[Rfam]
RNA sequence: CCUGGUCUGUGAUGACUCCUGUGUCUGGAGACUGUUGGAUGAGCCCUGCGGAUAUGGGGCUGAGGCCAGGC
Numbered sequence: 001c002c003u004g005g006u007c008u009g010u011g012a013u014g015a016c017u018c019c020u021g022u023g024u025c026u027g028g029a030g031a032c033u034g035u036u037g038g039a040u041g042a043g044c045c046c047u048g049c050g051g052a053u054a055u056g057g058g059g060c061u062g063a064g065g066c067c068a069g070g071c
Stems, first nucleotide, its partner, number of pairs: 001070005
RNA: Small nucleolar RNA SNORD99
Organism: Serilophus lunatus